[Rfam]
RNA: Sense overlapping transcript RNA 0042 (sot)
Organism: Halococcus morrhuae
RNA sequence: AAGUACCUCCGAGUCUUCAGUCGAUGAAGAUAGGAGUAACGGCUGGUUGGCACAGCCUGUGGUUCGUUUGUUCGACAAAACCCGAGGAAGCUUCCUCCCGUCAGAACAGGCGACCCACGAACCUUAAUAUCCCAACUGCGGCAGGGAAUCCUCGCCCUUCAGGGCGGGGA
Dot-bracket structure: ..((..((((..(((..((.....))..))).))))..))(((((.......)))))..(((.((.(((((((............((.((....)).))....))))))).)).)))............((((..(....)..)))).(((((((((....)))))))))